[Rfam]
RNA sequence: AAUAUCCUUCGGGGCAGGGUGAGAUUCCCUACCGGCGGUGUUCGUGAAGAAGCAGCUGCUUCUUCACGUCAGUCCGCGACCCGUACGAAACGGUGACAGUAUUUAUCGCCAUCAUUUCGUCCGGUGGAUUCGGUGCAAGUCCGGAACCGACAGUUAAAGUCUGGAUGAGAGAAGGAAGAG
Number, nucleotide and partner (000 for none) at each position: 001a000002a000003u178004a000005u176006c175007c174008u173009u172010c171011g000012g000013g000014g000015c000016a000017g029018g028019g027020u000021g000022a000023g000024a000025u000026u000027c019028c018029c017030u000031a160032c159033c149034g148035g077036c076037g075038g074039u000040g000041u000042u000043c000044g000045u000046g000047a000048a000049g000050a000051a000052g000053c000054a000055g000056c000057u000058g000059c000060u000061u000062c000063u000064u000065c000066a000067c000068g000069u000070c000071a000072g147073u146074c038075c037076g036077c035078g000079a000080c000081c124082c123083g000084u000085a000086c000087g000088a000089a000090a000091c000092g000093g000094u000095g000096a000097c000098a000099g000100u000101a000102u000103u000104u000105a000106u000107c000108g000109c000110c000111a000112u000113c000114a000115u000116u000117u000118c000119g000120u000121c000122c000123g082124g081125u000126g000127g000128a000129u145130u144131c143132g142133g141134u000135g000136c000137a000138a000139g000140u000141c133142c132143g131144g130145a129146a073147c072148c034149g033150a000151c163152a162153g161154u000155u000156a000157a000158a000159g032160u031161c153162u152163g151164g000165a000166u000167g000168a000169g000170a000171g010172a009173a008174g007175g006176a005177a000178g003179a000180g000
A member of the RNA family "FMN riboswitch aptamer (RFN element)" from Gorillibacterium sp., 180 nucleotides long. The source organism's lineage runs through Bacteria, Bacillota, Caryophanales, Paenibacillaceae and Gorillibacterium. The RFN element is a highly conserved domain that is found frequently in the 5'-untranslated regions of prokaryotic mRNAs that encode for flavin mononucleotide (FMN) biosynthesis and transport proteins. The family's consensus secondary structure is taken from published work.